[Rfam]
RNA sequence: GCCGGUCCUCGGUAGUGGUCUCCGGGAUACGCGAGUACGAGUCCCCGGGGGCUUCGAUCGAAGACCGGC
Numbered sequence: 001g002c003c004g005g006u007c008c009u010c011g012g013u014a015g016u017g018g019u020c021u022c023c024g025g026g027a028u029a030c031g032c033g034a035g036u037a038c039g040a041g042u043c044c045c046c047g048g049g050g051g052c053u054u055c056g057a058u059c060g061a062a063g064a065c066c067g068g069c
Base pairs, nucleotide, nucleotide: 001069002068003067004066005065006064007063009061010060011059012058013057017053018052019051020050021049022048023047024046025045026044029042030041
RNA: Actino-pnp RNA
Organism: Streptomyces sp. YIM 121038